[Rfam]
RNA sequence: CUCUUAUCUAGAGCGGCAGAGGGACUAGGCCCUGUGAAGCCCGGCAACCAUCCAGACAAACGGUUUGGAAAAGGUGCUAAUUCCUACAGGUCAUGAGGAUCUGGAAGAUAAGAG
Numbered sequence: 001c002u003c004u005u006a007u008c009u010a011g012a013g014c015g016g017c018a019g020a021g022g023g024a025c026u027a028g029g030c031c032c033u034g035u036g037a038a039g040c041c042c043g044g045c046a047a048c049c050a051u052c053c054a055g056a057c058a059a060a061c062g063g064u065u066u067g068g069a070a071a072a073g074g075u076g077c078u079a080a081u082u083c084c085u086a087c088a089g090g091u092c093a094u095g096a097g098g099a100u101c102u103g104g105a106a107g108a109u110a111a112g113a114g
Stems, first nucleotide, its partner, number of pairs: 001114008013042001015041003021032003026086004043078004048074002051069006082106001087103006
SAM riboswitch aptamer (S box leader): a 114-nucleotide RNA sequence from Pontibacillus yanchengensis.
The match comes from Rfam's covariance-model search (92 bits).
Lineage of the source: Bacteria > Bacillota > Bacilli > Pontibacillus > Pontibacillus yanchengensis.